Rfam assigns this 27-nucleotide RNA sequence to the family "L31-Firmicutes ribosomal protein leader". By type it is a cis-regulatory leader. A reference for the family is Eckert and Weinberg (2020), "Discovery of 20 novel ribosomal leader candidates in bacteria and archaea", BMC Microbiol.
[Rfam]
RNA sequence: CUAUGACUUUUGUCAUGGCGAAGGGAG
Numbered sequence: 001c002u003a004u005g006a007c008u009u010u011u012g013u014c015a016u017g018g019c020g021a022a023g024g025g026a027g
Base pairs, nucleotide, nucleotide: 001018002017003016004015005014006013007012